[Rfam]
Shown here is a 127-nucleotide RNA sequence from Tupaia belangeri, a member of the family "Small nucleolar RNA SNORA49". The source organism's lineage runs through Eukaryota, Deuterostomia, Tetrapoda, Scandentia and Tupaia. Gene Ontology terms of the family: RNA processing and nucleolus. Rfam classes the family as an H/ACA-box small nucleolar RNA. Rfam describes the family as follows. The snoRNA ACA49 has no identified RNA target.
RNA sequence: CUUCCUCAGCCUUACUCCAGGGGCUUUCUGCCCGUAGAGUGCCCUGGCAUUGCCUGAGGAGACAGCGAGAGCACGUUUCCCUCCCCAGGAAGACACUGUUCUGUGGGGCCUAAAACGAGCUGACAGG
Number, nucleotide and partner (000 for none) at each position: 001c000002u000003u060004c059005c058006u057007c056008a055009g054010c000011c052012u000013u000014a000015c000016u000017c047018c046019a045020g044021g043022g042023g040024c039025u038026u037027u036028c000029u000030g000031c000032c000033c000034g000035u000036a027037g026038a025039g024040u023041g000042c022043c021044c020045u019046g018047g017048c000049a000050u000051u000052g011053c000054c009055u008056g007057a006058g005059g004060a003061g000062a000063c000064a000065g000066c000067g000068a000069g000070a121071g120072c119073a000074c117075g116076u000077u000078u000079c000080c000081c000082u000083c108084c107085c106086c105087a104088g000089g000090a000091a102092g101093a100094c000095a000096c000097u000098g000099u000100u093101c092102u091103g000104u087105g086106g085107g084108g083109c000110c000111u000112a000113a000114a000115a000116c075117g074118a000119g072120c071121u070122g000123a000124c000125a000126g000127g000